[Rfam]
RNA: Small nucleolar RNA SNORA55
RNA sequence: GCACCUGGCUCUUCCCUGUUCCUCGCUGUGCAGUGCGGGUCUGGGGGCUCUUGGAGCUACAGCACAGCCGUGGAAAUCCAGAUGGGUUCUUUUCCCCUGGUGUGGGACUCAUCUCUCUACACCUCUGUAACACCA
Numbered sequence: 001g002c003a004c005c006u007g008g009c010u011c012u013u014c015c016c017u018g019u020u021c022c023u024c025g026c027u028g029u030g031c032a033g034u035g036c037g038g039g040u041c042u043g044g045g046g047g048c049u050c051u052u053g054g055a056g057c058u059a060c061a062g063c064a065c066a067g068c069c070g071u072g073g074a075a076a077u078c079c080a081g082a083u084g085g086g087u088u089c090u091u092u093u094c095c096c097c098u099g100g101u102g103u104g105g106g107a108c109u110c111a112u113c114u115c116u117c118u119a120c121a122c123c124u125c126u127g128u129a130a131c132a133c134c135a
Base pairs, nucleotide, nucleotide: 001057002056004054005053013047014046015045016044017043018042021039022038067128068127070125072123080114081113082112083111084110085109086108087107094106095105096104